[Rfam]
RNA: Makes More Granules Regulator RNA (mmgR)
RNA sequence: UGGCCCCGCCCAUUCUCGGGGCGUUUCCUCCCUAAACUUCAGGGCCGCGCGAUUGCGCGGCCCUAUUUCUUUGGGGUG
Numbered sequence: 001u002g003g004c005c006c007c008g009c010c011c012a013u014u015c016u017c018g019g020g021g022c023g024u025u026u027c028c029u030c031c032c033u034a035a036a037c038u039u040c041a042g043g044g045c046c047g048c049g050c051g052a053u054u055g056c057g058c059g060g061c062c063c064u065a066u067u068u069c070u071u072u073g074g075g076g077u078g
Stems, first nucleotide, its partner, number of pairs: 008022004042063009